[Rfam]
The family of this 68-nucleotide RNA sequence from Lentibacillus halodurans is "Bacillaceae-1 RNA". The match comes from Rfam's covariance-model search (52 bits).
RNA sequence: GAUAGAGGACCUUCUGCUAAAACCACCCACGUGCUGUAGGCAACGCAGAAGUCAUCACAUCCUGUGGG
Number, nucleotide and partner (000 for none) at each position: 001g000002a000003u000004a000005g000006a000007g000008g000009a000010c000011c051012u050013u049014c048015u047016g046017c045018u000019a000020a000021a000022a000023c000024c000025a000026c040027c039028c000029a037030c036031g000032u000033g000034c000035u000036g030037u029038a000039g027040g026041c000042a000043a000044c000045g017046c016047a015048g014049a013050a012051g011052u000053c000054a000055u067056c066057a065058c064059a000060u000061c000062c000063u000064g058065u057066g056067g055068g000

Overview: Pairs were carried over by alignment from the consensus structure, which is taken from published work. Taxonomically the source falls in Lentibacillus (Bacteria, Bacillati, Bacilli, Bacillaceae).